Shown here is a 60-nucleotide sequence from Actinokineospora fastidiosa, a member of the family "Actino-pnp RNA". Pairs were carried over by alignment from the consensus structure, which is taken from published work. It scores 67 bits against the family's covariance model.
[Rfam]
RNA sequence: GCCGGUCCUCGGUAGUGGCUUCCGGGUGGGGAAACCCGGUGGCUUCGAUCGAUGACCGGC
Numbered sequence: 001g002c003c004g005g006u007c008c009u010c011g012g013u014a015g016u017g018g019c020u021u022c023c024g025g026g027u028g029g030g031g032a033a034a035c036c037c038g039g040u041g042g043c044u045u046c047g048a049u050c051g052a053u054g055a056c057c058g059g060c
Base pairs, nucleotide, nucleotide: 001060002059003058004057005056006055007054009052010051011050012049013048017044018043019042020041022039023038024037025036026035027034